RNA sequence: CGUAACCACGCGGGGUGUCCCAUACGGGGACUGAGACGGGCCGCGGGCCCGAACCCGUCGAACCUGAUCUCGUUAGCACGAGCGGAGGAACGGUGGGCGUACUUCCUG
Numbered sequence: 001c002g003u004a005a006c007c008a009c010g011c012g013g014g015g016u017g018u019c020c021c022a023u024a025c026g027g028g029g030a031c032u033g034a035g036a037c038g039g040g041c042c043g044c045g046g047g048c049c050c051g052a053a054c055c056c057g058u059c060g061a062a063c064c065u066g067a068u069c070u071c072g073u074u075a076g077c078a079c080g081a082g083c084g085g086a087g088g089a090a091c092g093g094u095g096g097g098c099g100u101a102c103u104u105c106c107u108g
Stems, first nucleotide, its partner, number of pairs: 006096004011057004016051001017031005038050005063088003069082004
A member of the RNA family "TPP riboswitch aptamer (THI element)" from Thermobifida halotolerans, 108 nucleotides long. The organism belongs to Thermobifida, within Bacteria. From the family's description: Vitamin B(1) in its active form thiamin pyrophosphate (TPP) is an essential coenzyme that is synthesised by coupling of pyrimidine and thiazole moieties in bacteria.